[Rfam]
RNA sequence: UUGAAGCUCCAUCUACAAAUGGAUAAGAUCCGGUCUUAUAUGAGUUUUUGAAAAAAAAAAGGGAGCAAAAAACCCUCUUGGUCUAUCAAGAGGGCCUUAUUGCUCCUUUU
Numbered sequence: 001u002u003g004a005a006g007c008u009c010c011a012u013c014u015a016c017a018a019a020u021g022g023a024u025a026a027g028a029u030c031c032g033g034u035c036u037u038a039u040a041u042g043a044g045u046u047u048u049u050g051a052a053a054a055a056a057a058a059a060a061g062g063g064a065g066c067a068a069a070a071a072a073c074c075c076u077c078u079u080g081g082u083c084u085a086u087c088a089a090g091a092g093g094g095c096c097u098u099a100u101u102g103c104u105c106c107u108u109u110u
Base pairs, nucleotide, nucleotide: 008023009022010021011020012019055109056108057107062106063105064104065103066102067101068100070098071097074094075093076091077090078089079088
The family of this 110-nucleotide RNA sequence from Patrinia scabra is "Plastid-psbA-1 3UTR RNA". The base pairs follow the family's consensus structure, which was predicted with LocARNA. The family's RNA type in Rfam is cis-regulatory element. It is one of the family's seed sequences. The organism belongs to Patrinia, within Eukaryota. A reference for the family is Richter et al. (2023), "Retrograde signaling in plants: A critical review focusing on the GUN pathway and beyond", Plant Commun.